[Rfam]
RNA sequence: CGUGUGAGUAGAAGCGGUUAGAUGCAUCGGCAUCGGGACAUUGCUCAUGAG
Numbered sequence: 001c002g003u004g005u006g007a008g009u010a011g012a013a014g015c016g017g018u019u020a021g022a023u024g025c026a027u028c029g030g031c032a033u034c035g036g037g038a039c040a041u042u043g044c045u046c047a048u049g050a051g
Stems, first nucleotide, its partner, number of pairs: 005047006015036001018038002021034005
The family of this 51-nucleotide sequence from Vibrio viridaestus is "Xanthine riboswitch aptamer (NMT1 RNA)". For this family Rfam cites "A bacterial riboswitch class senses xanthine and uric acid to regulate genes associated with purine oxidation" (Yu and Breaker, RNA, 2020). The base pairs follow the family's consensus structure, which is taken from published work. Taxonomically the source falls in Vibrio (Bacteria, Pseudomonadati, Vibrionales, Vibrionaceae).